[Rfam]
Nucleotides: 104
Stems, first nucleotide, its partner, number of pairs: 006101006013094016030077003
Number, partner (000 for none) and nucleotide at each position: 001000u002000g003000g004000a005000u006101g007100a008099a009098c010097a011096u012000c013094a014093u015092u016091g017090a018089g019088u020087g021086c022085a023084g024083c025082g026081u027080u028079g029000a030077u031076g032075u033000a034000u035000c036000u037000u038000c039000c040000u041000u042000u043000u044000u045000c046000u047000u048000c049000a050000a051000u052000u053000g054000u055000u056000g057000a058000a059000u060000g061000g062000g063000a064000a065000a066000a067000a068000a069000c070000a071000a072000u073000u074000u075032a076031c077030a078000c079028c080027a081026g082025c083024g084023u085022u086021g087020c088019g089018c090017u091016c092015a093014a094013u095000c096011a097010u098009g099008u100007u101006u102000u103000u104000c